[Rfam]
RNA sequence: GUCGAUGAGGAUCUAAUCCAGUUGUAUGAGGUGCAGUGGAGCCGAGACUCUGUUUACAGGGAGAACCCCUUGGCAGAAGCUGCAAUUUCUUUGAAUUCAUUGGAUUUUACUGAGAC
Numbered sequence: 001g002u003c004g005a006u007g008a009g010g011a012u013c014u015a016a017u018c019c020a021g022u023u024g025u026a027u028g029a030g031g032u033g034c035a036g037u038g039g040a041g042c043c044g045a046g047a048c049u050c051u052g053u054u055u056a057c058a059g060g061g062a063g064a065a066c067c068c069c070u071u072g073g074c075a076g077a078a079g080c081u082g083c084a085a086u087u088u089c090u091u092u093g094a095a096u097u098c099a100u101u102g103g104a105u106u107u108u109a110c111u112g113a114g115a116c
Stems, first nucleotide, its partner, number of pairs: 001116003048061005
Shown here is a 116-nucleotide RNA from Eutrema salsugineum, a member of the family "Small nucleolar RNA Z278". Rfam 15.1 lists 1,130 matches to the family in 214 species. Its family is annotated with RNA processing and nucleolus in the Gene Ontology. snoZ278 is a C/D box small nucleolar RNA. Its methylation guide targets have not been reported. A search with the family's covariance model found it, with a score of 42 bits. The base pairs follow the family's consensus structure, which was predicted with PFOLD. The source organism's lineage runs through Eukaryota, Streptophyta, Euphyllophyta, eudicotyledons and Eutrema. A reference for the family is Chen et al. (2003), "The high diversity of snoRNAs in plants: identification and comparative study of 120 snoRNA genes from Oryza sativa", Nucleic Acids Res. Rfam classes the family as a C/D-box small nucleolar RNA.